[Rfam]
RNA sequence: AAGAGUGUUGACGGAUCGAAAGAUGAAGAUGGAGCGAGCGGGUAAGCGUCUGUUGCGGAAGGAUAAUAAACUAUGAGGGUGUCAGGAGUGACUUCCCGGUUCUCGAAAAUGGCGGUAGAGAAGAUCGUGCUGGCAGGUGUCAGGGCGUCGUAAACGCAAAAGCGGCUUAUCCAUAGUUCCCUAGUGUGCGGGGGUAGGCAGGGUUUAUUACCAAUGCACACAUACA
Numbered sequence: 001a002a003g004a005g006u007g008u009u010g011a012c013g014g015a016u017c018g019a020a021a022g023a024u025g026a027a028g029a030u031g032g033a034g035c036g037a038g039c040g041g042g043u044a045a046g047c048g049u050c051u052g053u054u055g056c057g058g059a060a061g062g063a064u065a066a067u068a069a070a071c072u073a074u075g076a077g078g079g080u081g082u083c084a085g086g087a088g089u090g091a092c093u094u095c096c097c098g099g100u101u102c103u104c105g106a107a108a109a110u111g112g113c114g115g116u117a118g119a120g121a122a123g124a125u126c127g128u129g130c131u132g133g134c135a136g137g138u139g140u141c142a143g144g145g146c147g148u149c150g151u152a153a154a155c156g157c158a159a160a161a162g163c164g165g166c167u168u169a170u171c172c173a174u175a176g177u178u179c180c181c182u183a184g185u186g187u188g189c190g191g192g193g194g195u196a197g198g199c200a201g202g203g204u205u206u207a208u209u210a211c212c213a214a215u216g217c218a219c220a221c222a223u224a225c226a
Base pairs, nucleotide, nucleotide: 006031007030008029009028015024016023017022072152073151074150077097078096079095081092082091083090084089100122101121102120103119104118123149124148125147127146128145130143131142132141133140134139155164156163157162184221185220186219187218188217189216190215202212203211204210
Shown here is a 226-nucleotide sequence, a member of the family "Clostridiales-3 RNA". It is one of the family's seed sequences. Rfam classes the family as a small RNA.